RNA sequence: UUGACGAUGAAAUGAGAAUUGUUACUAUUACCUCAACUGGUCGCGAGGCCAGCCAGAUAAGCUGAAAAGGUCGGACUCGAGCUCUUCAGGCUAUCUCCUCAUCAGGCUAAUCACGGUUAUUGACCCGGCUCUUGCCGGGUCUUUUUUUG
Numbered sequence: 001u002u003g004a005c006g007a008u009g010a011a012a013u014g015a016g017a018a019u020u021g022u023u024a025c026u027a028u029u030a031c032c033u034c035a036a037c038u039g040g041u042c043g044c045g046a047g048g049c050c051a052g053c054c055a056g057a058u059a060a061g062c063u064g065a066a067a068a069g070g071u072c073g074g075a076c077u078c079g080a081g082c083u084c085u086u087c088a089g090g091c092u093a094u095c096u097c098c099u100c101a102u103c104a105g106g107c108u109a110a111u112c113a114c115g116g117u118u119a120u121u122g123a124c125c126c127g128g129c130u131c132u133u134g135c136c137g138g139g140u141c142u143u144u145u146u147u148u149g
Base pairs, nucleotide, nucleotide: 037052038051039050040049041048042047062089063088064087065086066085068083069082071079097106098105099104122141123140124139125138126137127136128135129134
RNA: PrrF RNA
Organism: Pseudomonas matsuisoli